[Rfam]
RNA sequence: UUGACCUGCAAAUGAUAACGAUUAUUAUUGCAUUCAGCUGGUCGCGAGGUCAGCCGAUAACCUGAAAACUCUUGGUCGUGUUUUCAGAUUAUCUCCUCAUCAGGCUAAUCACGGUUAUUGACCCGGCUCUUUGGCCGGGUCUUUUUUUC
Numbered sequence: 001u002u003g004a005c006c007u008g009c010a011a012a013u014g015a016u017a018a019c020g021a022u023u024a025u026u027a028u029u030g031c032a033u034u035c036a037g038c039u040g041g042u043c044g045c046g047a048g049g050u051c052a053g054c055c056g057a058u059a060a061c062c063u064g065a066a067a068a069c070u071c072u073u074g075g076u077c078g079u080g081u082u083u084u085c086a087g088a089u090u091a092u093c094u095c096c097u098c099a100u101c102a103g104g105c106u107a108a109u110c111a112c113g114g115u116u117a118u119u120g121a122c123c124c125g126g127c128u129c130u131u132u133g134g135c136c137g138g139g140u141c142u143u144u145u146u147u148u149c
Stems, first nucleotide, its partner, number of pairs: 035056001037054007062087007069078001095104003120141008
Dot-bracket structure: ..................................(.(((((((....))))))).).....((((((((........)..))))))).......(((....)))...............((((((((......))))))))........